[Rfam]
RNA: Bacteroidete tryptophan peptide leader RNA
Organism: Dysgonomonas sp. BGC7
RNA sequence: UGGAAACAAAAGAAUAAAAAAUGAACUUUCUAUUGACAAAUACAUUUUGGUGGUGGCUCUUACAACUCAAAAAGUCGUGAGCAAAACCGGUAUGUAUUUAUAGGUAGAAAAAUUAUAAGAUAAAAUACAAAGCCUGUC
Numbered sequence: 001u002g003g004a005a006a007c008a009a010a011a012g013a014a015u016a017a018a019a020a021a022u023g024a025a026c027u028u029u030c031u032a033u034u035g036a037c038a039a040a041u042a043c044a045u046u047u048u049g050g051u052g053g054u055g056g057c058u059c060u061u062a063c064a065a066c067u068c069a070a071a072a073a074g075u076c077g078u079g080a081g082c083a084a085a086a087c088c089g090g091u092a093u094g095u096a097u098u099u100a101u102a103g104g105u106a107g108a109a110a111a112a113u114u115a116u117a118a119g120a121u122a123a124a125a126u127a128c129a130a131a132g133c134c135u136g137u138c
Stems, first nucleotide, its partner, number of pairs: 036101001038099001040097006047090001049088003056082002063077001065075003